Rfam assigns this 172-nucleotide sequence from Triticum aestivum to the family "MIR2118 microRNA precursor family".
The match comes from Rfam's covariance-model search (118 bits).
RNA sequence: GCUAGGAAGAGGAAGUAAGAGAGGGCGUAAGAGCAGUGGGAAUGAGAACAUAGAGGAAAUCCUAACUUUACUGGUUCUUUACCUCUUUUCUUGAGGUGGAAAUUCAGUUUGACAUUUCUCGAUGACUCUCAUUCCUAUUGUUAUUAGGCGCUCCUUCCUAUUCCUUUUUGUU
Numbered sequence: 001g002c003u004a005g006g007a008a009g010a011g012g013a014a015g016u017a018a019g020a021g022a023g024g025g026c027g028u029a030a031g032a033g034c035a036g037u038g039g040g041a042a043u044g045a046g047a048a049c050a051u052a053g054a055g056g057a058a059a060u061c062c063u064a065a066c067u068u069u070a071c072u073g074g075u076u077c078u079u080u081a082c083c084u085c086u087u088u089u090c091u092u093g094a095g096g097u098g099g100a101a102a103u104u105c106a107g108u109u110u111g112a113c114a115u116u117u118c119u120c121g122a123u124g125a126c127u128c129u130c131a132u133u134c135c136u137a138u139u140g141u142u143a144u145u146a147g148g149c150g151c152u153c154c155u156u157c158c159u160a161u162u163c164c165u166u167u168u169u170g171u172u
Base pairs, nucleotide, nucleotide: 009163010162011161013159015157017155021153022152023151026148028146029145030144032142033141034140035139037137038136039135040134041133042132043131044130045129046128047127049124050123051122053120055119056118057117058116059115060114
Rfam links the family to the GO terms miRNA-mediated post-transcriptional gene silencing and RISC complex. The literature on the family includes a 2009 paper in Nucleic Acids Res by Xue et al., "Characterization and expression profiles of miRNAs in rice seeds". Rfam 15.1 lists 2,377 matches to the family in 45 species. Pairs were carried over by alignment from the consensus structure, which was predicted with RNAalifold. Taxonomically the source falls in Triticum (Eukaryota, Streptophyta, Petrosaviidae, Triticinae).